Record summary
The family of this 100-nucleotide RNA from Syntrophaceticus schinkii is "Pyrrolysine insertion sequence mttB". On this family, see Theil Have et al., BMC Bioinformatics 2013: "Effects of using coding potential, sequence conservation and mRNA structure conservation for predicting pyrroly-sine containing genes". Taxonomically the source falls in Syntrophaceticus (Bacteria, Bacillati, Bacillota, Clostridia). The family's consensus secondary structure was predicted with CMfinder.
RNA sequence: UAGGCUGACAGCAAGCUUCCUGAUGCCCAGGCUGCUCAUGAAAAGACCAUCACUGCCCUGUUGACUGCGCUAGGUGGCGCAAACAUGAUUUACGGGUCAG
Dot-bracket structure: ..(........)............(......).((........................))...............(..(..............)..)..